[Rfam]
RNA sequence: UCUGACGGCCGCGACUGGCGUUCAGGUGGGUCACCACCGGGGAGCGGCUCUUCGGGUUUCGAGCCGUUCGCCUGGGCUCGCCGG
Numbered sequence: 001u002c003u004g005a006c007g008g009c010c011g012c013g014a015c016u017g018g019c020g021u022u023c024a025g026g027u028g029g030g031u032c033a034c035c036a037c038c039g040g041g042g043a044g045c046g047g048c049u050c051u052u053c054g055g056g057u058u059u060c061g062a063g064c065c066g067u068u069c070g071c072c073u074g075g076g077c078u079c080g081c082c083g084g
Base pairs, nucleotide, nucleotide: 004052005051007049008048009047010046011045012044015041016040017072018071019070020069026037027036028035029034061079062078063077064076065075
RNA: ZMP/ZTP riboswitch aptamer (pfl RNA motif)
Organism: Pseudoclavibacter sp. RFBA6